[Rfam]
RNA sequence: ACAGUCUCUUGGGAGACGCAUCAAACAUAUGAUCGUUUAAAAAAAGGCGCAGUUUUCUGCGCCUUUUUU
Numbered sequence: 001a002c003a004g005u006c007u008c009u010u011g012g013g014a015g016a017c018g019c020a021u022c023a024a025a026c027a028u029a030u031g032a033u034c035g036u037u038u039a040a041a042a043a044a045a046g047g048c049g050c051a052g053u054u055u056u057c058u059g060c061g062c063c064u065u066u067u068u069u
Stems, first nucleotide, its partner, number of pairs: 004017001006013002042067011
The record is a 69-nucleotide RNA sequence from Legionella shakespearei, which matches "Salmonella enterica sRNA STnc40" in Rfam. Taxonomically the source falls in Legionella shakespearei (Bacteria, Pseudomonadati, Legionellaceae, Legionella).